The family of this 122-nucleotide sequence from Tumebacillus flagellatus is "SAM riboswitch aptamer (S box leader)". It scores 80 bits against the family's covariance model. About the family: The SAM riboswitch is found upstream of a number of genes which code for proteins involved in methionine or cysteine biosynthesis in Gram-positive bacteria. The SAM riboswitch acts at the level of transcription termination control. The family's consensus secondary structure is taken from published work.
RNA sequence: UUCUUAUCCAGAGCAGGCGGAGGGACUGGCCCGAUGACGCCCGGCAACCGGUAUCCAUGGUGAUACACGGUGCUAACUCCUACAGGAAUACACCAAGUUUCAUGGUUCCUGAAAGAUAAGAG
Numbered sequence: 001u002u003c004u005u006a007u008c009c010a011g012a013g014c015a016g017g018c019g020g021a022g023g024g025a026c027u028g029g030c031c032c033g034a035u036g037a038c039g040c041c042c043g044g045c046a047a048c049c050g051g052u053a054u055c056c057a058u059g060g061u062g063a064u065a066c067a068c069g070g071u072g073c074u075a076a077c078u079c080c081u082a083c084a085g086g087a088a089u090a091c092a093c094c095a096a097g098u099u100u101c102a103u104g105g106u107u108c109c110u111g112a113a114a115g116a117u118a119a120g121a122g
Stems, first nucleotide, its partner, number of pairs: 001122008013042001016041003022032003028080002043074004048070002051066004078114001083111006